[Rfam]
RNA sequence: CGACCCCGCGCGGGAGAGCCCGGCACACCGUGUCCGGGCGCCGAAGGAGCAAACCCUCCCCGGAAUCUCUCAGGCACCAGGACCGUGCGGGUGAG
Dot-bracket structure: .....((((((((.....((((............)))).(((((..(((....(.......)....))))).))).......)))))))).....
RNA: Glycine riboswitch aptamer
Organism: Pseudonocardia thermophila